[Rfam]
RNA sequence: GCUUUUUAUGUGAUGAAAAAUUCCGGAUGUUAACUCAGUAUUACCUCCGAGAGCGCAAAACCGUGUGGAGAUUUCCGUUGCCUUCCUUCUGAUUACAAGC
Numbered sequence: 001g002c003u004u005u006u007u008a009u010g011u012g013a014u015g016a017a018a019a020a021u022u023c024c025g026g027a028u029g030u031u032a033a034c035u036c037a038g039u040a041u042u043a044c045c046u047c048c049g050a051g052a053g054c055g056c057a058a059a060a061c062c063g064u065g066u067g068g069a070g071a072u073u074u075c076c077g078u079u080g081c082c083u084u085c086c087u088u089c090u091g092a093u094u095a096c097a098a099g100c
Stems, first nucleotide, its partner, number of pairs: 003099003024077004
A member of the RNA family "Small nucleolar RNA Z13/snr52" from Venustampulla echinocandica, 100 nucleotides long. The match comes from Rfam's covariance-model search (96 bits). Gene Ontology terms of the family: RNA processing and nucleolus. Pairs were carried over by alignment from the consensus structure, which was predicted with PFOLD. It is annotated as a C/D-box small nucleolar RNA.